[Rfam]
RNA sequence: GGGAUGAGAAAAGGGUGAUUGAGAAGAAUAUGUUCUCUCUCUGUCUCUCUUUCUCUGAUAAAUGGAGGGAAAUCAAAGUGUCGAGAUAUCGUUUCUGUCGCCCUUUCGUCUUUGGUUGGCCAUUUGAUUGUUGACUUGAUCACAU
Numbered sequence: 001g002g003g004a005u006g007a008g009a010a011a012a013g014g015g016u017g018a019u020u021g022a023g024a025a026g027a028a029u030a031u032g033u034u035c036u037c038u039c040u041c042u043g044u045c046u047c048u049c050u051u052u053c054u055c056u057g058a059u060a061a062a063u064g065g066a067g068g069g070a071a072a073u074c075a076a077a078g079u080g081u082c083g084a085g086a087u088a089u090c091g092u093u094u095c096u097g098u099c100g101c102c103c104u105u106u107c108g109u110c111u112u113u114g115g116u117u118g119g120c121c122a123u124u125u126g127a128u129u130g131u132u133g134a135c136u137u138g139a140u141c142a143c144a145u
Base pairs, nucleotide, nucleotide: 006055007054008053009052010051011050013047014046015045017042080141083137084136085135088128089127090126091125097123098122100120101119102118105115106114